[Rfam]
Nucleotides: 127
Stems, first nucleotide, its partner, number of pairs: 003125008017029003031107002033096002035048004043094002052071002076092005098110003
Number, partner (000 for none) and nucleotide at each position: 001000c002000a003125a004124u005123g006122u007121c008120u009119u010118c011000a012000g013000g014000g015000c016000g017029g018028g019027g020000u021000g022000a023000a024000a025000c026000u027019c028018c029017c030000c031107a032106c033096u034095g035048g036047c037046g038045g039000u040000a041000a042000a043094g044093u045038c046037c047036g048035c049000g050000a051000c052071c053070g054000a055000a056000u057000g058000u059000g060000g061000c062000a063000g064000c065000a066000c067000a068000u069000u070053c071052g072000c073000u074000g075000a076092c077091c078090c079089g080088g081000u082000g083000g084000a085000a086000c087000u088080c089079c090078g091077g092076g093044a094043c095034c096033a097000a098110c099109g100108g101000u102000c103000a104000c105000a106032g107031u108100c109099c110098g111000g112000a113000u114000g115000g116000a117000a118010g119009a120008a121007g122006a123005u124004g125003u126000g127000u
Rfam assigns this 127-nucleotide RNA sequence from Flintibacter hominis to the family "FMN riboswitch aptamer (RFN element)". Its family is annotated with FMN binding in the Gene Ontology. A search with the family's covariance model found it, with a score of 114 bits.